A member of the RNA family "Small nucleolar RNA SNORA46" from Aptenodytes patagonicus, 139 nucleotides long. Rfam's curators write: ACA46 is a member of the H/ACA class of snoRNA that guide the sites of modification of uridines to pseudouridines.

RNA sequence: AGCACUAUUUUUAAACCUGUUGGUGGAGUUUCCUGACCACCAUGGGUUACGCUGUAGUGCAAGAGAAUCUCCUGGCUCUUUAAAGCAUAGCUGACCUUGCUCUGUUCAGCCAAUGCUUCUCUGAAGCUAAGGAACAGAA
Numbered sequence: 001a002g003c004a005c006u007a008u009u010u011u012u013a014a015a016c017c018u019g020u021u022g023g024u025g026g027a028g029u030u031u032c033c034u035g036a037c038c039a040c041c042a043u044g045g046g047u048u049a050c051g052c053u054g055u056a057g058u059g060c061a062a063g064a065g066a067a068u069c070u071c072c073u074g075g076c077u078c079u080u081u082a083a084a085g086c087a088u089a090g091c092u093g094a095c096c097u098u099g100c101u102c103u104g105u106u107c108a109g110c111c112a113a114u115g116c117u118u119c120u121c122u123g124a125a126g127c128u129a130a131g132g133a134a135c136a137g138a139a
Stems, first nucleotide, its partner, number of pairs: 002060007014048004021042006068134001070133004074128004079123001082120001085116003088112001090110002093107002

Lineage of the source: Eukaryota > Teleostomi > Amniota > Saurischia > Aptenodytes. Rfam classes the family as an H/ACA-box small nucleolar RNA. The base pairs follow the family's consensus structure, which was predicted with RNAfold. The family has 22 seed sequences and 582 matches in Rfam 15.1. Rfam links the family to the GO terms RNA processing and nucleolus.